[Rfam]
RNA sequence: CCCGCUCUCUUUGGGGAGUAGCCUGUUGCCGGUUCGUCCGGCAGCGCCCGUAUCAACAUUCUCGGCACCCUGCCGUGGUACGGGCACCUUCUGGUUGGCGAGACCAUCGACAUCCCUGCGCUGAAGUCGGGCGCGCGGGCAUGUCGUGGACUCAAGCCCGACCGGAAGAUC
Numbered sequence: 001c002c003c004g005c006u007c008u009c010u011u012u013g014g015g016g017a018g019u020a021g022c023c024u025g026u027u028g029c030c031g032g033u034u035c036g037u038c039c040g041g042c043a044g045c046g047c048c049c050g051u052a053u054c055a056a057c058a059u060u061c062u063c064g065g066c067a068c069c070c071u072g073c074c075g076u077g078g079u080a081c082g083g084g085c086a087c088c089u090u091c092u093g094g095u096u097g098g099c100g101a102g103a104c105c106a107u108c109g110a111c112a113u114c115c116c117u118g119c120g121c122u123g124a125a126g127u128c129g130g131g132c133g134c135g136c137g138g139g140c141a142u143g144u145c146g147u148g149g150a151c152u153c154a155a156g157c158c159c160g161a162c163c164g165g166a167a168g169a170u171c
Stems, first nucleotide, its partner, number of pairs: 026044005046085010063075005090169003
The family of this 171-nucleotide RNA sequence from Pseudomonas sp. MRSN 12121 is "Manganese Mn2+ riboswitch aptamer (yybP-ykoY)". The organism belongs to Pseudomonas, within Bacteria. From the family's description: This RNA was originally discovered in E. coli during a large scale screen and was named SraF. The family was later found to exist upstream of related families of protein genes in many bacteria, including the the yybP and ykoK genes in B. subtilis. The specific functions of these proteins are unknown, but this structured RNA element may be involved in their genetic regulation as a riboswitch.